RNA sequence: AGAGUGCAGGGAUCGAUGAGGACAAAAGUGCCUUGAGAGCUUUCACGGAAGCUAUGACCAGGUACUCAGCUCCUCCAGGUGACCCGCCCCAG
Numbered sequence: 001a002g003a004g005u006g007c008a009g010g011g012a013u014c015g016a017u018g019a020g021g022a023c024a025a026a027a028g029u030g031c032c033u034u035g036a037g038a039g040c041u042u043u044c045a046c047g048g049a050a051g052c053u054a055u056g057a058c059c060a061g062g063u064a065c066u067c068a069g070c071u072c073c074u075c076c077a078g079g080u081g082a083c084c085c086g087c088c089c090c091a092g
Base pairs, nucleotide, nucleotide: 006087007086009084010083014079018075020073021072026071030066032062033061034060035059038053039052040051041050042049043048